[Rfam]
RNA sequence: AAUAUGGUUUAGGGGAGCUGAGGGGGUAAGCUCGGCUGAGAGUAGGCACCGAAAACCCUGUGCCUUGACCCUUGGAACCUGCUCCGGGUAAUGCCGGCGAAGGGAAAAAGACGACGUUAAAG
Numbered sequence: 001a002a003u004a005u006g007g008u009u010u011a012g013g014g015g016a017g018c019u020g021a022g023g024g025g026g027u028a029a030g031c032u033c034g035g036c037u038g039a040g041a042g043u044a045g046g047c048a049c050c051g052a053a054a055a056c057c058c059u060g061u062g063c064c065u066u067g068a069c070c071c072u073u074g075g076a077a078c079c080u081g082c083u084c085c086g087g088g089u090a091a092u093g094c095c096g097g098c099g100a101a102g103g104g105a106a107a108a109a110g111a112c113g114a115c116g117u118u119a120a121a122g
Stems, first nucleotide, its partner, number of pairs: 008108003011072004016066001017036005044065006078103003084097004
Shown here is a 122-nucleotide RNA from Carboxydothermus hydrogenoformans, a member of the family "TPP riboswitch aptamer (THI element)". A search with the family's covariance model found it, with a score of 65 bits. NCBI's taxonomy places the organism under Bacteria, Clostridia, Thermoanaerobacterales, Thermoanaerobacteraceae, Carboxydothermus hydrogenoformans. Rfam's curators write: Vitamin B(1) in its active form thiamin pyrophosphate (TPP) is an essential coenzyme that is synthesised by coupling of pyrimidine and thiazole moieties in bacteria.